[Rfam]
Nucleotides: 103
Stems, first nucleotide, its partner, number of pairs: 021097004026092003033084003037080002040077001041075004
Number, partner (000 for none) and nucleotide at each position: 001000c002000g003000g004000c005000u006000g007000u008000a009000g010000c011000u012000a013000u014000a015000u016000c017000a018000a019000a020000u021097g022096a023095g024094a025000u026092g027091c028090u029000a030000a031000c032000u033084g034083g035082c036000c037080g038079g039000c040077u041075g042074u043073u044072g045000u046000g047000u048000g049000a050000g051000g052000u053000g054000g055000a056000u057000u058000u059000u060000c061000c062000c063000a064000u065000c066000u067000c068000c069000g070000a071000u072044u073043g074042a075041c076000u077040g078000a079038u080037c081000u082035g083034c084033u085000u086000a087000c088000c089000g090028a091027g092026c093000c094024u095023c096022u097021c098000a099000c100000a101000a102000u103000c